[Rfam]
RNA sequence: CCGUUCUUGUGUUAUUUGCUGGAUGUCUUUAUAGUCCAGCGAUCGUCAAACAGAACGCAUAUUAAAGCAACUAAUCACUCCAUAAUGAUGGGUCUAUUUUAACCAGGGCCUCCUCAUUACUAAAUGUUUGCUACAUUU
Numbered sequence: 001c002c003g004u005u006c007u008u009g010u011g012u013u014a015u016u017u018g019c020u021g022g023a024u025g026u027c028u029u030u031a032u033a034g035u036c037c038a039g040c041g042a043u044c045g046u047c048a049a050a051c052a053g054a055a056c057g058c059a060u061a062u063u064a065a066a067g068c069a070a071c072u073a074a075u076c077a078c079u080c081c082a083u084a085a086u087g088a089u090g091g092g093u094c095u096a097u098u099u100u101a102a103c104c105a106g107g108g109c110c111u112c113c114u115c116a117u118u119a120c121u122a123a124a125u126g127u128u129u130g131c132u133a134c135a136u137u138u
Stems, first nucleotide, its partner, number of pairs: 002057006010048002016042007084118005091110004
Annotation: The family of this 138-nucleotide sequence from Drosophila rhopaloa is "Small nucleolar RNA psi18S-1377". Rfam links the family to the GO terms nucleolus and RNA processing. The family's consensus secondary structure was predicted with RNAalifold. The match comes from Rfam's covariance-model search (139 bits). By type it is an H/ACA-box small nucleolar RNA. Rfam's curators write: psi18S-1377 is a member of the H/ACA class of snoRNA. This family is responsible for guiding the modification of uridines 1377 and 1279 to pseudouridine in Drosophila 18S rRNA.